[Rfam]
RNA sequence: UGGUCGCAGAAUAAGUUAUUCUGUGACCACUUUUAAGUUACGAUAAUUACUAUACUAAUUUACGAGAUUAUGGUAACUCUCUCAUAAGUGAUUUACUAUAGCAUUAUAGUAAGUAUCAUCUUGAAUUAUAGUAACCCACCUGUAUCGUAAAUGUGUAUUGUCAUUAUCGUAAAUUGAUACAAACAUUAUCGUAAAUUAAGAUGGCCAUAGAAUAAAUUAUUCUGUGGUUA
Dot-bracket structure: ((((((((((((((.((((((((((.(((.((((...((((((((((...(.((.((((((((..(((.((((((....(.(.(...(((..(((((((((..(....(.......).....)..))))))))....)..))).).).)......)))...))).))))))))))).)).)...))))))))))...))))))).)))))))))).))))))))))))))
Numbered sequence: 001u002g003g004u005c006g007c008a009g010a011a012u013a014a015g016u017u018a019u020u021c022u023g024u025g026a027c028c029a030c031u032u033u034u035a036a037g038u039u040a041c042g043a044u045a046a047u048u049a050c051u052a053u054a055c056u057a058a059u060u061u062a063c064g065a066g067a068u069u070a071u072g073g074u075a076a077c078u079c080u081c082u083c084a085u086a087a088g089u090g091a092u093u094u095a096c097u098a099u100a101g102c103a104u105u106a107u108a109g110u111a112a113g114u115a116u117c118a119u120c121u122u123g124a125a126u127u128a129u130a131g132u133a134a135c136c137c138a139c140c141u142g143u144a145u146c147g148u149a150a151a152u153g154u155g156u157a158u159u160g161u162c163a164u165u166a167u168c169g170u171a172a173a174u175u176g177a178u179a180c181a182a183a184c185a186u187u188a189u190c191g192u193a194a195a196u197u198a199a200g201a202u203g204g205c206c207a208u209a210g211a212a213u214a215a216a217u218u219a220u221u222c223u224g225u226g227g228u229u230a
Stems, first nucleotide, its partner, number of pairs: 001230014016215010027204003031201004038194010051181001053179002056176008066168003070164003073158003080149001082147001084145001088143003093138001094133008104123001109117001
The record is a 230-nucleotide RNA from Miscanthus lutarioriparius, which matches "MIR6217 microRNA precursor family" in Rfam. Pairs were carried over by alignment from the consensus structure, which was predicted with RNAalifold. Lineage of the source: Eukaryota > Viridiplantae > Embryophyta > Poales > Miscanthus.